[Rfam]
A member of the RNA family "6S-Flavo RNA", 105 nucleotides long.
RNA sequence: ACUCAACGCGAAUUUUUUUAUAAAGGGUGAGUCAUUUCUGCUAAAGCACGCCUAAUUGGAUCCUUGAUCAGUAUGUUAGCUCUAAUCUUGUUUUAAUGAGAGUUU
Number, nucleotide and partner (000 for none) at each position: 001a000002c000003u000004c000005a000006a000007c000008g000009c000010g000011a000012a000013u000014u000015u000016u000017u000018u000019u000020a000021u000022a000023a000024a083025g082026g081027g080028u079029g000030a000031g000032u000033c000034a000035u000036u073037u000038c071039u070040g000041c000042u000043a000044a065045a064046g063047c000048a000049c000050g000051c059052c058053u000054a000055a000056u000057u000058g052059g051060a000061u000062c000063c046064u045065u044066g000067a000068u000069c000070a039071g038072u000073a036074u000075g000076u000077u000078a000079g028080c027081u026082c025083u024084a000085a000086u000087c000088u000089u000090g000091u000092u000093u000094u000095a000096a000097u000098g000099a000100g000101a000102g000103u000104u000105u000
Record summary: The sequence is in the family's curated seed alignment.